RNA sequence: UCCGAAAGAAAGUCAUUUGUAUGAUUAACGUUUCAUUCAAUGUUACAUCUUUCGAAUAUCAAAUCGCUUCUUCUCGUUGGUGCUAGUUCAUUUUGUUUAGUAUCCUCUACUCUGAAAGCUACACGA
Numbered sequence: 001u002c003c004g005a006a007a008g009a010a011a012g013u014c015a016u017u018u019g020u021a022u023g024a025u026u027a028a029c030g031u032u033u034c035a036u037u038c039a040a041u042g043u044u045a046c047a048u049c050u051u052u053c054g055a056a057u058a059u060c061a062a063a064u065c066g067c068u069u070c071u072u073c074u075c076g077u078u079g080g081u082g083c084u085a086g087u088u089c090a091u092u093u094u095g096u097u098u099a100g101u102a103u104c105c106u107c108u109a110c111u112c113u114g115a116a117a118g119c120u121a122c123a124c125g126a
Stems, first nucleotide, its partner, number of pairs: 003054007012046002017040003021036003066119004072115002078109003082105001083100004088095001
Dot-bracket structure: ..(((((((..((...(((.(((..........))).)))....)).)))))))...........((((..((....(((.(((((.(......).))))....).)))....)))))).......
Background: The family of this 126-nucleotide RNA from Caenorhabditis angaria is "Caenorhabditis snoRNA ceN81". It scores 57 bits against the family's covariance model. Pairs were carried over by alignment from the consensus structure, which was predicted with RNAalifold.